[Rfam]
Nucleotides: 225
Base pairs, nucleotide, nucleotide: 001225002224003223004222005221006220007219009217010216011215012214013213014212015211017209018208019207021205022204023203024202025201026200027199028198030196031195032194033193035191036190037189038188039187041185042184043183044182045181047179048178051174054171057168058167064161065160070157071156072155073154075152076151
Number, partner (000 for none) and nucleotide at each position: 001225a002224a003223c004222c005221a006220c007219a008000c009217u010216a011215u012214c013213g014212a015211u016000a017209a018208a019207u020000g021205g022204a023203u024202u025201c026200a027199c028198c029000c030196g031195u032194g033193a034000g035191a036190u037189g038188a039187c040000g041185u042184g043183g044182u045181c046000a047179u048178u049000c050000c051174a052000u053000c054171u055000a056000g057168g058167a059000u060000g061000a062000a063000g064161a065160c066000g067000u068000g069000g070157c071156a072155u073154c074000c075152u076151a077000u078000u079000a080000a081000u082000u083000u084000c085000g086000u087000g088000c089000g090000a091000u092000g093000g094000c095000u096000g097000g098000u099000a100000a101000u102000u103000g104000g105000u106000a107000g108000u109000u110000u111000a112000g113000u114000u115000u116000c117000a118000c119000a120000a121000a122000a123000c124000c125000a126000c127000a128000c129000u130000a131000u132000c133000g134000a135000u136000a137000a138000a139000u140000g141000g142000a143000u144000u145000c146000a147000c148000c149000c150000g151076u152075g153000a154073g155072a156071u157070g158000a159000c160065g161064u162000g163000g164000u165000c166000g167058u168057u169000c170000c171054a172000u173000c174051u175000a176000g177000g178048a179047a180000c181045g182044a183043c184042c185041a186000c187039g188038u189037c190036a191035u192000c193033u194032c195031a196030c197000g198028g199027g200026u201025g202024a203023a204022u205021c206000c207019a208018u209017u210000u211015a212014u213013c214012g215011a216010u217009a218000g219007u220006g221005u222004g223003g224002u225001u

MIR807 microRNA precursor family: a 225-nucleotide RNA sequence from Oryza sativa.
A reference for the family is Luo et al. (2006), "Rice embryogenic calli express a unique set of microRNAs, suggesting regulatory roles of microRNAs in plant post-embryogenic development", FEBS Lett.
Pairs were carried over by alignment from the consensus structure, which was predicted with WAR.
A search with the family's covariance model found it, with a score of 115 bits.